[Rfam]
RNA sequence: CUGCACGCCAGUAGACCUCGUGUGGCUCCUCUCAUAGCCAGACGAGGGGGACGGUGCGUGCUACAGGACCUGGGGCUGCUGCAGGCUCUGGUCAGCCUCGGGGUGGCUGCUGGAGCUGCGGUGCUCCAACAAAC
Numbered sequence: 001c002u003g004c005a006c007g008c009c010a011g012u013a014g015a016c017c018u019c020g021u022g023u024g025g026c027u028c029c030u031c032u033c034a035u036a037g038c039c040a041g042a043c044g045a046g047g048g049g050g051a052c053g054g055u056g057c058g059u060g061c062u063a064c065a066g067g068a069c070c071u072g073g074g075g076c077u078g079c080u081g082c083a084g085g086c087u088c089u090g091g092u093c094a095g096c097c098u099c100g101g102g103g104u105g106g107c108u109g110c111u112g113g114a115g116c117u118g119c120g121g122u123g124c125u126c127c128a129a130c131a132a133a134c
Base pairs, nucleotide, nucleotide: 003061004060005059006058007057008056016047017046018045019044020043021042023040024039072127073126074125075124077123080120081119082118093109094108095107096106
A member of the RNA family "Small nucleolar RNA SNORA58" from Chloroceryle aenea, 134 nucleotides long. From the family's description: ACA52 is a member of the H/ACA class of snoRNA that guide the sites of modification of uridines to pseudouridines. The family is grouped with related families in Rfam's "SNORA44 clan". It scores 79 bits against the family's covariance model.